[Rfam]
RNA: mir-286 microRNA precursor family
RNA sequence: AAAAUUGAAUGGCGAUUGUCGGUAUAGUCUCUUUUUCCAAAAAUCUUGUUUGUUUUUGCCAAUCUAAUAAGAAAGUGACUAGACCGAACACUCGUGCUAUAAUUUUAA
Number, nucleotide and partner (000 for none) at each position: 001a000002a000003a000004a000005u000006u000007g000008a000009a100010u099011g098012g097013c096014g095015a000016u000017u090018g089019u088020c086021g085022g084023u000024a000025u081026a080027g079028u078029c077030u000031c075032u074033u073034u072035u071036u070037c000038c000039a000040a000041a000042a000043a000044u000045c000046u000047u000048g000049u000050u000051u000052g000053u000054u000055u000056u000057u000058g000059c000060c000061a000062a000063u000064c000065u000066a000067a000068u000069a000070a036071g035072a034073a033074a032075g031076u000077g029078a028079c027080u026081a025082g000083a000084c022085c021086g020087a000088a019089c018090a017091c000092u000093c000094g000095u014096g013097c012098u011099a010100u009101a000102a000103u000104u000105u000106u000107a000108a000